Notes:
A member of the RNA family "Mu-gpT-DE RNA", 52 nucleotides long. The sequence is in the family's curated seed alignment. The family's RNA type in Rfam is small RNA.
RNA sequence: CCCUGACAGCCACAGGAUUUGGCUGACUAACCCAAGACAGGAGAUUGACAUG
Numbered sequence: 001c002c003c004u005g006a007c008a009g010c011c012a013c014a015g016g017a018u019u020u021g022g023c024u025g026a027c028u029a030a031c032c033c034a035a036g037a038c039a040g041g042a043g044a045u046u047g048a049c050a051u052g
Stems, first nucleotide, its partner, number of pairs: 002041004007025005